[Rfam]
Rfam assigns this 321-nucleotide part of an RNA from Acutalibacter sp. 1XD8-33 to the family "Bacterial large subunit ribosomal RNA". For this family Rfam cites "Crystal structure of the ribosome at 5.5 A resolution" (Yusupov et al., Science, 2001).

RNA sequence: GAGAAAUAUGUGAGAAUCAUAUUGGCCGAAAGUCUAAGGUUUUUGGAGGAAGGUUCGUCCGCUCCAAGUUAGCCGGGAGCUAAGGUGAGGCCGAGAGGCGUAGCCGAUGCACAUACGGUGGAAAUUCCGUAGCCGCCGAAAGAUUUAAGCAAGAGGACACCUUGAAAGGGCACGACCCGGGCGAUGGUUGCCCCGGGCGCAAGGGACCGAAAUUAUAGUAGGGAAGCGUGCUUGGACGAGGGCGAGAAAAGUCUUGUGUAUAUCUCAGGCGCCCGUACCGCAAACCGACACAGGUGGACAGGAAGAGGAUUCUAAGGCCAA
Numbered sequence: 001g002a003g004a005a006a007u008a009u010g011u012g013a014g015a016a017u018c019a020u021a022u023u024g025g026c027c028g029a030a031a032g033u034c035u036a037a038g039g040u041u042u043u044u045g046g047a048g049g050a051a052g053g054u055u056c057g058u059c060c061g062c063u064c065c066a067a068g069u070u071a072g073c074c075g076g077g078a079g080c081u082a083a084g085g086u087g088a089g090g091c092c093g094a095g096a097g098g099c100g101u102a103g104c105c106g107a108u109g110c111a112c113a114u115a116c117g118g119u120g121g122a123a124a125u126u127c128c129g130u131a132g133c134c135g136c137c138g139a140a141a142g143a144u145u146u147a148a149g150c151a152a153g154a155g156g157a158c159a160c161c162u163u164g165a166a167a168g169g170g171c172a173c174g175a176c177c178c179g180g181g182c183g184a185u186g187g188u189u190g191c192c193c194c195g196g197g198c199g200c201a202a203g204g205g206a207c208c209g210a211a212a213u214u215a216u217a218g219u220a221g222g223g224a225a226g227c228g229u230g231c232u233u234g235g236a237c238g239a240g241g242g243c244g245a246g247a248a249a250a251g252u253c254u255u256g257u258g259u260a261u262a263u264c265u266c267a268g269g270c271g272c273c274c275g276u277a278c279c280g281c282a283a284a285c286c287g288a289c290a291c292a293g294g295u296g297g298a299c300a301g302g303a304a305g306a307g308g309a310u311u312c313u314a315a316g317g318c319c320a321a
Stems, first nucleotide, its partner, number of pairs: 005023006024319004032299004038279002043067006052060002074275004079110002084105003088101001090099003114131005134271004138266002146260002150256005160241003170231005176197006198203001207222002210219001285294002301313004
The match comes from Rfam's covariance-model search (2775 bits). Taxonomically the source falls in Acutalibacter (Bacteria, Bacillota, Clostridia, Acutalibacteraceae).